[Rfam]
Nucleotides: 149
Stems, first nucleotide, its partner, number of pairs: 007063003018050005026042003081144001083142002094129004099124003103121003
Number, partner (000 for none) and nucleotide at each position: 001000u002000u003000c004000a005000c006000u007063u008062u009061g010000c011000c012000a013000c014000a015000c016000u017000c018050u019049g020048g021047a022046c023000u024000u025000c026042g027041c028040c029000c030000a031000u032000c033000u034000c035000c036000c037000u038000g039000u040028g041027g042026c043000c044000u045000u046022g047021u048020c049019c050018a051000a052000u053000u054000u055000u056000a057000a058000g059000u060000g061009c062008a063007a064000a065000g066000a067000a068000g069000a070000u071000c072000a073000u074000c075000u076000c077000u078000u079000c080000u081144g082000u083142c084141c085000u086000a087000c088000u089000a090000c091000u092000c093000a094129c095128c096127g097126g098000a099124a100123u101122g102000u103121c104120u105119c106000c107000u108000c109000u110000u111000c112000g113000g114000a115000g116000c117000g118000u119105g120104g121103g122101c123100a124099u125000a126097u127096c128095g129094g130000u131000c132000c133000a134000u135000g136000u137000u138000u139000a140000a141084g142083g143000u144081c145000a146000a147000c148000a149000u
Overview
Shown here is a 149-nucleotide RNA sequence from Aureobasidium subglaciale, a member of the family "Small nucleolar RNA snR80". For this family Rfam cites "Genome-wide searching for pseudouridylation guide snoRNAs: analysis of the Saccharomyces cerevisiae genome" (Schattner et al., Nucleic Acids Res, 2004). The family has 6 seed sequences and 447 matches in Rfam 15.1. The family is grouped with related families in Rfam's "SNORA28 clan".